Shown here is a 52-nucleotide sequence from Strobilanthes cusia, a member of the family "Plastid-psbA-4 3UTR RNA".
From the family's description: Plastid psbA-4 is a non-coding RNA (ncRNA) present in plastids. It was identified in inverted repeat sequences in the 3 prime untranslate region (3UTR) of photosystem II quinone-binding protein (psbA).
On this family, see Richter et al., Plant Commun 2023: "Retrograde signaling in plants: A critical review focusing on the GUN pathway and beyond".
The sequence is in the family's curated seed alignment.
The family is grouped with related families in Rfam's "Plastid-psbA 3UTR RNA clan".
The family's RNA type in Rfam is cis-regulatory element.
RNA sequence: AAGGAGCAAUAAACUCUUUCUUGUUCUAUCAAGAGAGUUUAUUGCUCCUUAA
Numbered sequence: 001a002a003g004g005a006g007c008a009a010u011a012a013a014c015u016c017u018u019u020c021u022u023g024u025u026c027u028a029u030c031a032a033g034a035g036a037g038u039u040u041a042u043u044g045c046u047c048c049u050u051a052a
Base pairs, nucleotide, nucleotide: 001050002049003048004047005046006045007044008043009042010041011040016037018035019034020033021032022031023030